Shown here is a 62-nucleotide sequence from Centapoxvirus microtuspox, a member of the family "Poxvirus AX element late mRNA cis-regulatory element".

RNA sequence: GAGUCUUUUCACAAAAGACUUUAUCCAACAAUUCUUCUUCGGACAAUUGUGGAUUUGAAUGU
Numbered sequence: 001g002a003g004u005c006u007u008u009u010c011a012c013a014a015a016a017g018a019c020u021u022u023a024u025c026c027a028a029c030a031a032u033u034c035u036u037c038u039u040c041g042g043a044c045a046a047u048u049g050u051g052g053a054u055u056u057g058a059a060u061g062u
Stems, first nucleotide, its partner, number of pairs: 002020008021058002023054005030048004034042002
On this family, see Howard et al., Virology 1999: "A 43-nucleotide RNA cis-acting element governs the site-specific formation of the 3' end of a poxvirus late mRNA". Pairs were carried over by alignment from the consensus structure, which is taken from published work. About the family: This family represents a cis-regulatory element present at the 3' ends of poxvirus late mRNAs and is known as the AX element.The AX element is involved in directing the efficient production and orientation-dependent formation of of late RNAs.